[Rfam]
RNA: Bacterial small signal recognition particle RNA
RNA sequence: UGUCGGUCCCCCCGCGACGAUAGGCCGUGAACCCCGCCAGGCCCGGAAGGGAGCAACGGUAGCGGCCGAUUCGGGCGCCGGGGUGUGGCGGGUGCGG
Numbered sequence: 001u002g003u004c005g006g007u008c009c010c011c012c013c014g015c016g017a018c019g020a021u022a023g024g025c026c027g028u029g030a031a032c033c034c035c036g037c038c039a040g041g042c043c044c045g046g047a048a049g050g051g052a053g054c055a056a057c058g059g060u061a062g063c064g065g066c067c068g069a070u071u072c073g074g075g076c077g078c079c080g081g082g083g084u085g086u087g088g089c090g091g092g093u094g095c096g097g
Stems, first nucleotide, its partner, number of pairs: 004091001006089003010083005015075001018073003023067006034059003042051003